A member of the RNA family "Manganese Mn2+ riboswitch aptamer (yybP-ykoY)" from Oxalobacteraceae bacterium OM1, 176 nucleotides long. The source organism's lineage runs through Bacteria, Pseudomonadati, Betaproteobacteria, Burkholderiales and Oxalobacteraceae. Pairs were carried over by alignment from the consensus structure. A reference for the family is Argaman et al. (2001), "Novel small RNA-encoding genes in the intergenic regions of Escherichia coli", Curr Biol.
RNA sequence: CGAACUGUCAUUGGGGAGUAGCCGCCCUUCAUCUCCCGAAGGGGCUUGCGUCAACAUACUUGGUCCACAGACCAUGGCGUAAGCGGUUUCCAGACUUGGCAAGACCUUUGACCACAUCGCCUCUGCAUUGGCCGGGGGAGCGUUGUGGUCAAUUGUCAUUGGCCCGGCCGGGAACC
Numbered sequence: 001c002g003a004a005c006u007g008u009c010a011u012u013g014g015g016g017a018g019u020a021g022c023c024g025c026c027c028u029u030c031a032u033c034u035c036c037c038g039a040a041g042g043g044g045c046u047u048g049c050g051u052c053a054a055c056a057u058a059c060u061u062g063g064u065c066c067a068c069a070g071a072c073c074a075u076g077g078c079g080u081a082a083g084c085g086g087u088u089u090c091c092a093g094a095c096u097u098g099g100c101a102a103g104a105c106c107u108u109u110g111a112c113c114a115c116a117u118c119g120c121c122u123c124u125g126c127a128u129u130g131g132c133c134g135g136g137g138g139a140g141c142g143u144u145g146u147g148g149u150c151a152a153u154u155g156u157c158a159u160u161g162g163c164c165c166g167g168c169c170g171g172g173a174a175c176c
Stems, first nucleotide, its partner, number of pairs: 026042003044084010061074005086176001088174004